[Rfam]
RNA sequence: CCUGGAAAGCCUUAACUCCGCACACGCAUCGACACGGUCGCCUGGGUGCCCGCAAGGGUUGGCAGCUGGGGUGCGUGGAGGCCUAAC
Numbered sequence: 001c002c003u004g005g006a007a008a009g010c011c012u013u014a015a016c017u018c019c020g021c022a023c024a025c026g027c028a029u030c031g032a033c034a035c036g037g038u039c040g041c042c043u044g045g046g047u048g049c050c051c052g053c054a055a056g057g058g059u060u061g062g063c064a065g066c067u068g069g070g071g072u073g074c075g076u077g078g079a080g081g082c083c084u085a086a087c
Stems, first nucleotide, its partner, number of pairs: 023077008035068004040063003048059004

The record is an 87-nucleotide RNA from Pseudomonas fluvialis, which matches "t44 RNA" in Rfam.
On this family, see Tjaden et al., Nucleic Acids Res 2002: "Transcriptome analysis of Escherichia coli using high-density oligonucleotide probe arrays".
The match comes from Rfam's covariance-model search (72 bits).
From the family's description: This family consists of a number of bacterial RNA genes of between 135 and 170 bases in length.
Rfam classes the family as a small RNA.
The source organism's lineage runs through Bacteria, Pseudomonadati, Pseudomonadales, Pseudomonadaceae and Pseudomonas.